[Rfam]
RNA sequence: UCAUGGCGGGGGCUGGGGUCAGCCUCAUGGCGGUGGCUGG
Numbered sequence: 001u002c003a004u005g006g007c008g009g010g011g012g013c014u015g016g017g018g019u020c021a022g023c024c025u026c027a028u029g030g031c032g033g034u035g036g037c038u039g040g
Base pairs, nucleotide, nucleotide: 001030002029003028004027005026006025
RNA: Prion pseudoknot